[Rfam]
RNA sequence: AGGAAUAGAAGUAGAGAAAUAUCGGGAACUACGCACCUAGAUAUAGGUAUCUGAAAAGUGGGGAUUUCCCGUCCCACCUAUUCUA
Numbered sequence: 001a002g003g004a005a006u007a008g009a010a011g012u013a014g015a016g017a018a019a020u021a022u023c024g025g026g027a028a029c030u031a032c033g034c035a036c037c038u039a040g041a042u043a044u045a046g047g048u049a050u051c052u053g054a055a056a057a058g059u060g061g062g063g064a065u066u067u068c069c070c071g072u073c074c075c076a077c078c079u080a081u082u083c084u085a
Stems, first nucleotide, its partner, number of pairs: 002084007011032004023071005034053001035048004058077005